[Rfam]
RNA sequence: AUUCUAAUGAGGAUCUCAAGACCUACAGCUAGGGAAUGUUGUUUGACAAUGUAAGCAACAAAUGGUUCUUUUAGCUGUAAGUGUCUAUCCUGCGACCAUAACCUCUAUGGUUUGGUAUAGGAAGGAGCACCCAUCUGUAGUUGAUGGAUUCAACUUGGGUCAUCGAGAUGUUAUAAUAACAACCUGAAAU
Numbered sequence: 001a002u003u004c005u006a007a008u009g010a011g012g013a014u015c016u017c018a019a020g021a022c023c024u025a026c027a028g029c030u031a032g033g034g035a036a037u038g039u040u041g042u043u044u045g046a047c048a049a050u051g052u053a054a055g056c057a058a059c060a061a062a063u064g065g066u067u068c069u070u071u072u073a074g075c076u077g078u079a080a081g082u083g084u085c086u087a088u089c090c091u092g093c094g095a096c097c098a099u100a101a102c103c104u105c106u107a108u109g110g111u112u113u114g115g116u117a118u119a120g121g122a123a124g125g126a127g128c129a130c131c132c133a134u135c136u137g138u139a140g141u142u143g144a145u146g147g148a149u150u151c152a153a154c155u156u157g158g159g160u161c162a163u164c165g166a167g168a169u170g171u172u173a174u175a176a177u178a179a180c181a182a183c184c185u186g187a188a189a190u
Stems, first nucleotide, its partner, number of pairs: 001190003075140005081134003084126003088122003095116004100112004

This 190-nucleotide RNA from Zea mays belongs to the Rfam family "Small nucleolar RNA Z112". Rfam 15.1 lists 427 matches to the family in 103 species. Rfam links the family to the GO terms nucleolus and RNA processing. It is annotated as a C/D-box small nucleolar RNA.